Shown here is a 331-nucleotide RNA sequence from Defluviitoga tunisiensis, a member of the family "Bacterial RNase P class A".
Its family is annotated with ribonuclease P activity, dimeric ribonuclease P complex and tRNA processing in the Gene Ontology.
A search with the family's covariance model found it, with a score of 229 bits.
[Rfam]
RNA sequence: UAAGUAGGAUGAUUGAUCGCGAGUAGGCAUACAGGGCCUAUCUUGAGGAAAGUCUGGACUCUAAGGGUAAGGUGCUGGUUAAUUGCCAGAAGGAGAGAUCCUUGAAUAGGGCCAUAGAAACGGAAACCGCCGAAAGGCAAGGGUGGAAAGGUGGGGUAAGAGCCCACCAGUAUCAGAGCGAUCUGAUAGCUUGGCAACCUCCACCUUGAGCAAGGUCAAGCAGGAAGGCCAUAGGUGAUCCGCCGAGUGAGAGUUCUUCUCCGCCUUCCAGGUAGACCGCGAAGAUAAAUGAUCAAUAAGACAGAAUCCGGCUUACAGUCCUACUUAAUUA
Dot-bracket structure: ((((((((((((((((((.(((((((((.......))))).))))....[[[.[[[[[(((...[[[[.((((((((((.....)))))(((((....)))))((...(((((.............(((((....)))..)).......((((((.......)))))).((((((((....))))))).)..)))..))))))))).)))...((((......((((((.................(.(((.]]]]))).).))))))......))))............))))))).........]]]]]]]].).))))))))))....
The family's RNA type in Rfam is ribozyme.